This 102-nucleotide RNA from Mesobacillus persicus belongs to the Rfam family "Purine riboswitch aptamer".
RNA sequence: AUUUUAAAUUUAAAUGUAACUCAUAUAAUCGCGGGGAUAUGGCCUGCAAGUUUCUACCGGACUGCCGUAAAUGGUCUGACUAUGAGUGAGCAAUGAGCAGAA
Numbered sequence: 001a002u003u004u005u006a007a008a009u010u011u012a013a014a015u016g017u018a019a020c021u022c023a024u025a026u027a028a029u030c031g032c033g034g035g036g037a038u039a040u041g042g043c044c045u046g047c048a049a050g051u052u053u054c055u056a057c058c059g060g061a062c063u064g065c066c067g068u069a070a071a072u073g074g075u076c077u078g079a080c081u082a083u084g085a086g087u088g089a090g091c092a093a094u095g096a097g098c099a100g101a102a
Stems, first nucleotide, its partner, number of pairs: 019087007029049001031047005058078007

Taxonomically the source falls in Mesobacillus (Bacteria, Bacillota, Caryophanales, Bacillaceae).